[Rfam]
RNA sequence: AACCUGUGAUGACUGAUUCUGCCAAAUGAGUCCAAUGAUUCAACCCUUUACCGUUUCAUAUUACUGAGGUU
Numbered sequence: 001a002a003c004c005u006g007u008g009a010u011g012a013c014u015g016a017u018u019c020u021g022c023c024a025a026a027u028g029a030g031u032c033c034a035a036u037g038a039u040u041c042a043a044c045c046c047u048u049u050a051c052c053g054u055u056u057c058a059u060a061u062u063a064c065u066g067a068g069g070u071u
Base pairs, nucleotide, nucleotide: 001071002070003069004068
The record is a 71-nucleotide RNA sequence from Danionella cerebrum, which matches "Small nucleolar RNA SNORD47" in Rfam. Rfam links the family to the GO terms RNA processing and nucleolus. On this family, see Galardi et al., Mol Cell Biol 2002: "Purified box C/D snoRNPs are able to reproduce site-specific 2'-O-methylation of target RNA in vitro". Lineage of the source: Eukaryota > Vertebrata > Otomorpha > Ostariophysi > Danionella. The family's consensus secondary structure was predicted with ILM. Rfam 15.1 lists 755 matches to the family in 638 species.